[Rfam]
This 76-nucleotide RNA from Rhipicephalus sanguineus belongs to the Rfam family "mir-124 microRNA precursor family". The organism belongs to Rhipicephalus, within Eukaryota. A search with the family's covariance model found it, with a score of 55 bits.
RNA sequence: AACUCUCCGUAUUCACUGCGUGGCUUGAUGUGCCCACGUUCACGUACCAUAAGGCACGCGGUGAAUGCCAAGAGAA
Numbered sequence: 001a002a003c004u005c006u007c008c009g010u011a012u013u014c015a016c017u018g019c020g021u022g023g024c025u026u027g028a029u030g031u032g033c034c035c036a037c038g039u040u041c042a043c044g045u046a047c048c049a050u051a052a053g054g055c056a057c058g059c060g061g062u063g064a065a066u067g068c069c070a071a072g073a074g075a076a
Base pairs, nucleotide, nucleotide: 003074004073005072006071009068010067011066012065013064014063015062016061018059019058020057024054025053026052029051030050031049032048